[Rfam]
RNA sequence: UGCCUCCCUACCUGGGUAGAGUGGCAUUUGGUAUGGUGGUGCUCAUCUCAUUUCAUCCAGGGACAGAGCAACCCUUUGUUCAUCCCACCUUCGCUUUUGUAGCAUGCCUAUGCCUGGUUCAUGCCUAGGACACACGG
Numbered sequence: 001u002g003c004c005u006c007c008c009u010a011c012c013u014g015g016g017u018a019g020a021g022u023g024g025c026a027u028u029u030g031g032u033a034u035g036g037u038g039g040u041g042c043u044c045a046u047c048u049c050a051u052u053u054c055a056u057c058c059a060g061g062g063a064c065a066g067a068g069c070a071a072c073c074c075u076u077u078g079u080u081c082a083u084c085c086c087a088c089c090u091u092c093g094c095u096u097u098u099g100u101a102g103c104a105u106g107c108c109u110a111u112g113c114c115u116g117g118u119u120c121a122u123g124c125c126u127a128g129g130a131c132a133c134a135c136g137g
Stems, first nucleotide, its partner, number of pairs: 001065002004062001006061002013055003019049003023043006077132005093124002098121002103116002106113002